[Rfam]
RNA sequence: CAUGGGUUUAUGUUAUAUUCCAUCUCUUGCACACUGGACUAGCCAGCUUUUUGUUGGCUUCAGCUUCAGGUUGGUGUGCAGGGGGUGGAAUACAUCAUUGAUAUCAUG
Numbered sequence: 001c002a003u004g005g006g007u008u009u010a011u012g013u014u015a016u017a018u019u020c021c022a023u024c025u026c027u028u029g030c031a032c033a034c035u036g037g038a039c040u041a042g043c044c045a046g047c048u049u050u051u052u053g054u055u056g057g058c059u060u061c062a063g064c065u066u067c068a069g070g071u072u073g074g075u076g077u078g079c080a081g082g083g084g085g086u087g088g089a090a091u092a093c094a095u096c097a098u099u100g101a102u103a104u105c106a107u108g
Base pairs, nucleotide, nucleotide: 001108002107003106004105005104006102007101008100010098011097012096014094016092017091018090019089020088021087022086023085024084025083026082027081028080029079030078031077032076033075034074035073036072037071039069
MIR2950 microRNA precursor family: a 108-nucleotide sequence from Gossypium hirsutum. Rfam 15.1 lists 60 matches to the family in 34 species. Gene Ontology terms of the family: RISC complex and miRNA-mediated post-transcriptional gene silencing. The family's consensus secondary structure was predicted with RNAalifold. The sequence is in the family's curated seed alignment.